A member of the RNA family "U4atac minor spliceosomal RNA" from Anolis carolinensis, 110 nucleotides long. Rfam links the family to the GO terms U4atac snRNP, pre-mRNA 5'-splice site binding and mRNA 5'-splice site recognition. The family has 61 seed sequences and 1,648 matches in Rfam 15.1. Its Rfam clan is "U4 clan". About the family: U4atac is an essential component of the minor U12-type spliceosome complex which is required for removal of the rarer class of eukaryotic introns (AT-AC, U12-type). The source organism's lineage runs through Eukaryota, Sauria, Iguania, Anolidae and Anolis. A search with the family's covariance model found it, with a score of 55 bits. The base pairs follow the family's consensus structure, which is taken from published work.
[Rfam]
RNA sequence: UCCUUACCUUGGGAUUGCACUACUGUUCAAUGAAUGUAUAGUGAAAACAGUACUGCUGACGCCGGCACAGCACUUAUGCAUCCCUGGGGUUUAGGCUCCAAUGUGGUGCA
Numbered sequence: 001u002c003c004u005u006a007c008c009u010u011g012g013g014a015u016u017g018c019a020c021u022a023c024u025g026u027u028c029a030a031u032g033a034a035u036g037u038a039u040a041g042u043g044a045a046a047a048c049a050g051u052a053c054u055g056c057u058g059a060c061g062c063c064g065g066c067a068c069a070g071c072a073c074u075u076a077u078g079c080a081u082c083c084c085u086g087g088g089g090u091u092u093a094g095g096c097u098c099c100a101a102u103g104u105g106g107u108g109c110a
Stems, first nucleotide, its partner, number of pairs: 003013003017056003022051006034042002078109005085100006